[Rfam]
RNA sequence: AGUCAAGAGUCUUGGCGCCGUUUUGGUGAGCGGAUUUCUUUUGCCCAACUAAAGGUGAAAGACAAUG
Numbered sequence: 001a002g003u004c005a006a007g008a009g010u011c012u013u014g015g016c017g018c019c020g021u022u023u024u025g026g027u028g029a030g031c032g033g034a035u036u037u038c039u040u041u042u043g044c045c046c047a048a049c050u051a052a053a054g055g056u057g058a059a060a061g062a063c064a065a066u067g
Stems, first nucleotide, its partner, number of pairs: 009063003012059002016057004021053003025049001028046001030044005
RNA: S-element